[Rfam]
RNA sequence: CCGUUCAACUCGUUUCCCCUUGAGGGAAACUACGGGAG
Numbered sequence: 001c002c003g004u005u006c007a008a009c010u011c012g013u014u015u016c017c018c019c020u021u022g023a024g025g026g027a028a029a030c031u032a033c034g035g036g037a038g
Base pairs, nucleotide, nucleotide: 001035002034003033004032012030013029014028015027016026017025018024
Shown here is a 38-nucleotide RNA sequence, a member of the family "THF-II riboswitch (folE RNA)". Rfam links the family to the GO term regulation of gene expression. Rfam's curators put it in the seed alignment. The family's consensus secondary structure is taken from published work. The literature on the family includes a 2023 paper in Nucleic Acids Res by Xu et al., "Structural insights into translation regulation by the THF-II riboswitch". The family's RNA type in Rfam is cis-regulatory element.